Shown here is a 147-nucleotide RNA sequence from Phyllobacterium zundukense, a member of the family "Alphaproteobacterial sRNA ar7". On this family, see del Val et al., RNA Biol 2012: "A survey of sRNA families in alpha-proteobacteria". The match comes from Rfam's covariance-model search (63 bits). Pairs were carried over by alignment from the consensus structure.
[Rfam]
RNA sequence: UGUCGACGUUAGAUCGACGUCCGGGUCAAAAGGCUCGUCCCCCGCCUCACCCCGGACAGCGGCCAGCCUCAUCCCCCUCUCCAGGGCUGACCGCAAAUGAGUGUAGUGAUCUGGUCGCCUGUGGUCCCCCCGCCACGGCGACCAUUU
Numbered sequence: 001u002g003u004c005g006a007c008g009u010u011a012g013a014u015c016g017a018c019g020u021c022c023g024g025g026u027c028a029a030a031a032g033g034c035u036c037g038u039c040c041c042c043c044g045c046c047u048c049a050c051c052c053c054g055g056a057c058a059g060c061g062g063c064c065a066g067c068c069u070c071a072u073c074c075c076c077c078u079c080u081c082c083a084g085g086g087c088u089g090a091c092c093g094c095a096a097a098u099g100a101g102u103g104u105a106g107u108g109a110u111c112u113g114g115u116c117g118c119c120u121g122u123g124g125u126c127c128c129c130c131c132g133c134c135a136c137g138g139c140g141a142c143c144a145u146u147u
Stems, first nucleotide, its partner, number of pairs: 020056006032046003059094004064089005113143001115141005121136005